[Rfam]
RNA sequence: AAAAAUGUUUUUAAAAGGCAGAUCAGCAUGCCAGAGUAACGGAGAGACUUUGACAGCCCAGGUUAUCACAGUGCCUGCUGUUGCCACUCAGCUCUCCUAUAUGU
Numbered sequence: 001a002a003a004a005a006u007g008u009u010u011u012u013a014a015a016a017g018g019c020a021g022a023u024c025a026g027c028a029u030g031c032c033a034g035a036g037u038a039a040c041g042g043a044g045a046g047a048c049u050u051u052g053a054c055a056g057c058c059c060a061g062g063u064u065a066u067c068a069c070a071g072u073g074c075c076u077g078c079u080g081u082u083g084c085c086a087c088u089c090a091g092c093u094c095u096c097c098u099a100u101a102u103g104u
Stems, first nucleotide, its partner, number of pairs: 001012003041097006056084002059077004
This 104-nucleotide RNA from Rattus norvegicus belongs to the Rfam family "Small nucleolar RNA SNORA44". Rfam links the family to the GO terms nucleolus and RNA processing. ACA44 is a member of the H/ACA class of snoRNA that guide the sites of modification of uridines to pseudouridines. The family's consensus secondary structure was predicted with PFOLD. A reference for the family is Huttenhofer et al. (2001), "RNomics: an experimental approach that identifies 201 candidates for novel, small, non-messenger RNAs in mouse", EMBO J. The family's RNA type in Rfam is H/ACA-box small nucleolar RNA.